[Rfam]
RNA sequence: GCUGAGCUCGGUUGCGCGGGCUUGUAACCCAAGCGGGGGCAUUAGCGUGGUGGGACAUGGGUUUGGUCCCUGCGGGUCGGACCUGCCUGCGGCUCUCUUCUGGGCCGCCCGUUCCAAGCCGAGAGUUGAUUCAUGCUUGGCCGGGCGAAGGCUUGGGCGGCGUUGGUCCUAGAGUGGAGGGGUCCGCGUGAGGCUGGCUUCACAGAGCAGCGAUAACCUCCCGCUCCCGGCAGUGGAAGGAUUACGGGCCGGUGCCGCUCGGGUCCAUCAUGGCCCAAUGGGCCGAACCCUUUGAACCACCACUUUU
Numbered sequence: 001g002c003u004g005a006g007c008u009c010g011g012u013u014g015c016g017c018g019g020g021c022u023u024g025u026a027a028c029c030c031a032a033g034c035g036g037g038g039g040c041a042u043u044a045g046c047g048u049g050g051u052g053g054g055a056c057a058u059g060g061g062u063u064u065g066g067u068c069c070c071u072g073c074g075g076g077u078c079g080g081a082c083c084u085g086c087c088u089g090c091g092g093c094u095c096u097c098u099u100c101u102g103g104g105c106c107g108c109c110c111g112u113u114c115c116a117a118g119c120c121g122a123g124a125g126u127u128g129a130u131u132c133a134u135g136c137u138u139g140g141c142c143g144g145g146c147g148a149a150g151g152c153u154u155g156g157g158c159g160g161c162g163u164u165g166g167u168c169c170u171a172g173a174g175u176g177g178a179g180g181g182g183u184c185c186g187c188g189u190g191a192g193g194c195u196g197g198c199u200u201c202a203c204a205g206a207g208c209a210g211c212g213a214u215a216a217c218c219u220c221c222c223g224c225u226c227c228c229g230g231c232a233g234u235g236g237a238a239g240g241a242u243u244a245c246g247g248g249c250c251g252g253u254g255c256c257g258c259u260c261g262g263g264u265c266c267a268u269c270a271u272g273g274c275c276c277a278a279u280g281g282g283c284c285g286a287a288c289c290c291u292u293u294g295a296a297c298c299a300c301c302a303c304u305u306u307u
Stems, first nucleotide, its partner, number of pairs: 001040003004023007028037003044306002047303007056294002059291003062287006069281002074276005079266007090257003094254001100252004105247003109240002112238005118231004123226004128168004133163004138159002141156006169174001176221005187212003194205003
Shown here is a 307-nucleotide RNA from Rhodamnia argentea, a member of the family "Plant signal recognition particle RNA". The match comes from Rfam's covariance-model search (242 bits). Taxonomically the source falls in Rhodamnia (Eukaryota, Mesangiospermae, Pentapetalae, malvids). The base pairs follow the family's consensus structure, which is taken from published work. Gene Ontology terms of the family: signal recognition particle, endoplasmic reticulum targeting and SRP-dependent cotranslational protein targeting to membrane, signal sequence recognition.